Rfam assigns this 65-nucleotide sequence from Heterocephalus glaber to the family "MAT2A 3'UTR stem loop F". Pairs were carried over by alignment from the consensus structure, which is taken from published work. On this family, see Parker et al., Genome Res 2011: "New families of human regulatory RNA structures identified by comparative analysis of vertebrate genomes". It scores 71 bits against the family's covariance model. Taxonomically the source falls in Heterocephalus (Eukaryota, Eumetazoa, Amniota, Rodentia).
[Rfam]
RNA sequence: CAUGAGAGAGCUGAUGUGGCUGGUGUGGUACAGAGAAGCCAGCUCGUUUACAUGCUUAAUCCAUG
Numbered sequence: 001c002a003u004g005a006g007a008g009a010g011c012u013g014a015u016g017u018g019g020c021u022g023g024u025g026u027g028g029u030a031c032a033g034a035g036a037a038g039c040c041a042g043c044u045c046g047u048u049u050a051c052a053u054g055c056u057u058a059a060u061c062c063a064u065g
Stems, first nucleotide, its partner, number of pairs: 001065004005060001008057004013048003018044007025031002